The family of this 78-nucleotide RNA sequence from Rosa chinensis is "small nucleolar RNA snoR117". Rfam links the family to the GO terms nucleolus and RNA processing. NCBI's taxonomy places the organism under Eukaryota, Magnoliopsida, eudicotyledons, Rosaceae, Rosa. The base pairs follow the family's consensus structure, which was predicted with RNAalifold.
[Rfam]
RNA sequence: GGCCGGUGAUGUUUAGAUGUAUUGUCCGUACCAUCUGAGAGAAAUCUCUGAUGCAUUAACCUCUAGCUUCUGAGGCCU
Numbered sequence: 001g002g003c004c005g006g007u008g009a010u011g012u013u014u015a016g017a018u019g020u021a022u023u024g025u026c027c028g029u030a031c032c033a034u035c036u037g038a039g040a041g042a043a044a045u046c047u048c049u050g051a052u053g054c055a056u057u058a059a060c061c062u063c064u065a066g067c068u069u070c071u072g073a074g075g076c077c078u
Stems, first nucleotide, its partner, number of pairs: 001077004